Description:
The record is a 68-nucleotide RNA sequence from Antrihabitans cavernicola, which matches "ASdes TB sRNA" in Rfam. The family's RNA type in Rfam is small RNA. The family has 26 seed sequences and 1,192 matches in Rfam 15.1. The family's consensus secondary structure is taken from published work.
[Rfam]
Nucleotides: 068
Base pairs, nucleotide, nucleotide: 005062006061008059009058011030012029013028016026017025035056036055037054038053040052041051042050044048
Number, partner (000 for none) and nucleotide at each position: 001000a002000g003000c004000g005062c006061g007000a008059c009058g010000g011030g012029g013028u014000c015000g016026a017025c018000g019000g020000c021000g022000c023000g024000g025017g026016u027000g028013g029012u030011c031000a032000c033000c034000a035056g036055g037054u038053a039000g040052u041051c042050g043000c044048g045000c046000a047000u048044c049000a050042c051041g052040a053038u054037g055036c056035c057000g058009u059008g060000g061006c062005g063000g064000u065000u066000u067000u068000c